[Rfam]
RNA: sodF sRNA
Organism: Streptomyces sp. WAC06614
RNA sequence: CCGUCCGCCUCGUGAUCGUCUUCUCAACCUUCGCGUGCGGACGUACCGACGGAAGGCCCCCGCGAUGACGUGAAUCGCGGGGGCCUUCC
Numbered sequence: 001c002c003g004u005c006c007g008c009c010u011c012g013u014g015a016u017c018g019u020c021u022u023c024u025c026a027a028c029c030u031u032c033g034c035g036u037g038c039g040g041a042c043g044u045a046c047c048g049a050c051g052g053a054a055g056g057c058c059c060c061c062g063c064g065a066u067g068a069c070g071u072g073a074a075u076c077g078c079g080g081g082g083g084c085c086u087u088c089c
Stems, first nucleotide, its partner, number of pairs: 002043007010035001012034004018028002051089016